[Rfam]
RNA sequence: AAAAGUGGAACACAGACUAUAAGUGCCACGUCUGUGGCAACGUCUGUGUGACUCGCAUUCUGUGGG
Numbered sequence: 001a002a003a004a005g006u007g008g009a010a011c012a013c014a015g016a017c018u019a020u021a022a023g024u025g026c027c028a029c030g031u032c033u034g035u036g037g038c039a040a041c042g043u044c045u046g047u048g049u050g051a052c053u054c055g056c057a058u059u060c061u062g063u064g065g066g
Stems, first nucleotide, its partner, number of pairs: 011048007025038005052066005

This 66-nucleotide sequence from Metabacillus arenae belongs to the Rfam family "Bacillaceae-1 RNA".
NCBI's taxonomy places the organism under Bacteria, Bacillota, Bacilli, Bacillaceae, Metabacillus.
A search with the family's covariance model found it, with a score of 56 bits.